[Rfam]
RNA: Small nucleolar RNA SNORA84
Organism: Clupea harengus
RNA sequence: GCCUGGUGGUUCCCAGAGACAGCUAGUCAGUGCUGAUCUGUGGGAUUUUGAUUGACAGGCAUAUCGCUGCGAUAUAAUGCAUAGCGUCUGCUUCCCCGUGCAGCCUCCAUAGCCCGGUUUCAGAGACAUUC
Numbered sequence: 001g002c003c004u005g006g007u008g009g010u011u012c013c014c015a016g017a018g019a020c021a022g023c024u025a026g027u028c029a030g031u032g033c034u035g036a037u038c039u040g041u042g043g044g045a046u047u048u049u050g051a052u053u054g055a056c057a058g059g060c061a062u063a064u065c066g067c068u069g070c071g072a073u074a075u076a077a078u079g080c081a082u083a084g085c086g087u088c089u090g091c092u093u094c095c096c097c098g099u100g101c102a103g104c105c106u107c108c109a110u111a112g113c114c115c116g117g118u119u120u121c122a123g124a125g126a127c128a129u130u131c
Stems, first nucleotide, its partner, number of pairs: 001060004007051001008048001011045005017039001020035004067123001069121001071119003079113002081110002084107001086105001088103004